Flavo-1 RNA: a 103-nucleotide RNA sequence from Flavobacterium soyangense. Pairs were carried over by alignment from the consensus structure, which is taken from published work. NCBI's taxonomy places the organism under Bacteria, Pseudomonadati, Flavobacteriia, Flavobacteriaceae, Flavobacterium.
RNA sequence: AGUGAACUUCGUUUGAAGUGAAAAUCCUUUUUUUUACAGACCUAUAAGGUUUUAAAAACCUUAUAGGCUUAAAAAAAGAUUGCAACGAAAAGCGGGACGACUG
Numbered sequence: 001a002g003u004g005a006a007c008u009u010c011g012u013u014u015g016a017a018g019u020g021a022a023a024a025u026c027c028u029u030u031u032u033u034u035u036a037c038a039g040a041c042c043u044a045u046a047a048g049g050u051u052u053u054a055a056a057a058a059c060c061u062u063a064u065a066g067g068c069u070u071a072a073a074a075a076a077a078g079a080u081u082g083c084a085a086c087g088a089a090a091a092g093c094g095g096g097a098c099g100a101c102u103g
Stems, first nucleotide, its partner, number of pairs: 009095003013091002018086002023081004029076006036069001